[Rfam]
Shown here is a 379-nucleotide RNA from Beijerinckiaceae bacterium RH AL1, a member of the family "Alphaproteobacteria transfer-messenger RNA". Clan: tRNA clan. Rfam describes the family as follows. Bacterial tmRNA, also known as 10Sa RNA or SsrA, is named for its dual tRNA and mRNA-like properties. By type it is a non-coding RNA gene. NCBI's taxonomy places the organism under Bacteria, Pseudomonadota, Alphaproteobacteria, Hyphomicrobiales, Beijerinckiaceae.

RNA sequence: GCUCUUCCUAACCGACGGUGUUCCGCCUAUAUUGCCUUUGCCGCCCUCGUGGCGGCUAUGGCGAUAAACGGCGUCGAAAUAAGCUUUUCGGACCCGGGGGCGGUACCCGGCGCCUCCACCCGAGCGCAUUGGUCGCAGCUCUGCUCGAGCCUGCGAGCGGCGCGUUCCGGCGGGGGCGAAAUAGGUUCGACGGGAAGUGUAAAGGACGAUCUUUUGCCCGGCAUUGUACCGCCGUUAUCGGGCUAAACUUAUAGUUGCCAACGACAACUAUGCUCCGGUGGCCCUCGCCGCGUAAUGCGGUGACGGUACCGAUUCAAAGUCCUUUGGGGUAGCACUCAAAGGCGGGGUUCGGAGGCACCUGGCAACAGAAGCCUCCACU
Numbered sequence: 001g002c003u004c005u006u007c008c009u010a011a012c013c014g015a016c017g018g019u020g021u022u023c024c025g026c027c028u029a030u031a032u033u034g035c036c037u038u039u040g041c042c043g044c045c046c047u048c049g050u051g052g053c054g055g056c057u058a059u060g061g062c063g064a065u066a067a068a069c070g071g072c073g074u075c076g077a078a079a080u081a082a083g084c085u086u087u088u089c090g091g092a093c094c095c096g097g098g099g100g101c102g103g104u105a106c107c108c109g110g111c112g113c114c115u116c117c118a119c120c121c122g123a124g125c126g127c128a129u130u131g132g133u134c135g136c137a138g139c140u141c142u143g144c145u146c147g148a149g150c151c152u153g154c155g156a157g158c159g160g161c162g163c164g165u166u167c168c169g170g171c172g173g174g175g176g177c178g179a180a181a182u183a184g185g186u187u188c189g190a191c192g193g194g195a196a197g198u199g200u201a202a203a204g205g206a207c208g209a210u211c212u213u214u215u216g217c218c219c220g221g222c223a224u225u226g227u228a229c230c231g232c233c234g235u236u237a238u239c240g241g242g243c244u245a246a247a248c249u250u251a252u253a254g255u256u257g258c259c260a261a262c263g264a265c266a267a268c269u270a271u272g273c274u275c276c277g278g279u280g281g282c283c284c285u286c287g288c289c290g291c292g293u294a295a296u297g298c299g300g301u302g303a304c305g306g307u308a309c310c311g312a313u314u315c316a317a318a319g320u321c322c323u324u325u326g327g328g329g330u331a332g333c334a335c336u337c338a339a340a341g342g343c344g345g346g347g348u349u350c351g352g353a354g355g356c357a358c359c360u361g362g363c364a365a366c367a368g369a370a371g372c373c374u375c376c377a378c379u
Base pairs, nucleotide, nucleotide: 040056041055042054043053044052060218061217062216063215064214070211071210072208073207074206075205084197085196086195088193089192090191094110095109096108097107098106111178112177113176114175115174116173117172219234220233221232222231224245226243229241230240345360346359347358348357351376352375353374354373355372356371